[Rfam]
RNA: Eukaryotic large subunit ribosomal RNA, nucleotides 2770 to 3366
RNA sequence: GAAGACCCUGUUGAGCUUGACUCUAGUCUGACUCUGUGAAGAGACAUGAGAGGUGUAGCAUAAGUGGGAGGUCCUCCUCGGGGCCCGCCGUUGAAAUACCACUACUUUCAUCGUUUCUUUACUGACUCGGUGAAGCGGAGAGCGGACGUUCGCGUCCACCUUUCUAGCCCUAAGCUCGGUCGCUCGCGACCGCAGCGAUCUGCUCCGAGGACAGUGUCAGGCGGGAAGUUUGACUGGGGCGGUACAUCUGUCAAAAGGUAACGCAGGUGUCCUAAGGCGAGCUCAGUGAGGACAGAAACCUCGCGUAGAGCAAAAGGGCAAAUGCUGGCUUGAUCUUGAUUUUCAGUACGAAUACAGACCGCGAAAGCGGGGCCUAUCGAUCCUUUUGAUUUUAGGAGUUUUAAGCAAGAGGUGUCAGAAAAGUUACCACAGGGGUAACUGGCUUGUGGCAGCCAAGCGUUCAUAGCGACGUUGCUUUUUGAUCCUUCGAUGUCGGCUCUUCCUAUCAUUGCGAAGCAGAAUUCGCCAAGCGUUGGAUUGUUCACCCACUAAUAGGGAACGUGAGCUGGGUUUAGACCGUCGUGAGACAGGUUAGUU
Numbered sequence: 001g002a003a004g005a006c007c008c009u010g011u012u013g014a015g016c017u018u019g020a021c022u023c024u025a026g027u028c029u030g031a032c033u034c035u036g037u038g039a040a041g042a043g044a045c046a047u048g049a050g051a052g053g054u055g056u057a058g059c060a061u062a063a064g065u066g067g068g069a070g071g072u073c074c075u076c077c078u079c080g081g082g083g084c085c086c087g088c089c090g091u092u093g094a095a096a097u098a099c100c101a102c103u104a105c106u107u108u109c110a111u112c113g114u115u116u117c118u119u120u121a122c123u124g125a126c127u128c129g130g131u132g133a134a135g136c137g138g139a140g141a142g143c144g145g146a147c148g149u150u151c152g153c154g155u156c157c158a159c160c161u162u163u164c165u166a167g168c169c170c171u172a173a174g175c176u177c178g179g180u181c182g183c184u185c186g187c188g189a190c191c192g193c194a195g196c197g198a199u200c201u202g203c204u205c206c207g208a209g210g211a212c213a214g215u216g217u218c219a220g221g222c223g224g225g226a227a228g229u230u231u232g233a234c235u236g237g238g239g240c241g242g243u244a245c246a247u248c249u250g251u252c253a254a255a256a257g258g259u260a261a262c263g264c265a266g267g268u269g270u271c272c273u274a275a276g277g278c279g280a281g282c283u284c285a286g287u288g289a290g291g292a293c294a295g296a297a298a299c300c301u302c303g304c305g306u307a308g309a310g311c312a313a314a315a316g317g318g319c320a321a322a323u324g325c326u327g328g329c330u331u332g333a334u335c336u337u338g339a340u341u342u343u344c345a346g347u348a349c350g351a352a353u354a355c356a357g358a359c360c361g362c363g364a365a366a367g368c369g370g371g372g373c374c375u376a377u378c379g380a381u382c383c384u385u386u387u388g389a390u391u392u393u394a395g396g397a398g399u400u401u402u403a404a405g406c407a408a409g410a411g412g413u414g415u416c417a418g419a420a421a422a423g424u425u426a427c428c429a430c431a432g433g434g435g436u437a438a439c440u441g442g443c444u445u446g447u448g449g450c451a452g453c454c455a456a457g458c459g460u461u462c463a464u465a466g467c468g469a470c471g472u473u474g475c476u477u478u479u480u481g482a483u484c485c486u487u488c489g490a491u492g493u494c495g496g497c498u499c500u501u502c503c504u505a506u507c508a509u510u511g512c513g514a515a516g517c518a519g520a521a522u523u524c525g526c527c528a529a530g531c532g533u534u535g536g537a538u539u540g541u542u543c544a545c546c547c548a549c550u551a552a553u554a555g556g557g558a559a560c561g562u563g564a565g566c567u568g569g570g571u572u573u574a575g576a577c578c579g580u581c582g583u584g585a586g587a588c589a590g591g592u593u594a595g596u597u
Stems, first nucleotide, its partner, number of pairs: 007433004012429002014425005020229003027221006036122010046111007063103005070086002126209005136202004144157005174196003177192004232245001233243003246268006271372002277329002280326003283309002286304006310319002334358003339353004360369003383411006391405004442483001444481001446480001448476006457467002494569001495567004499561001500558005507532001511526005534548003538544001575593004579588003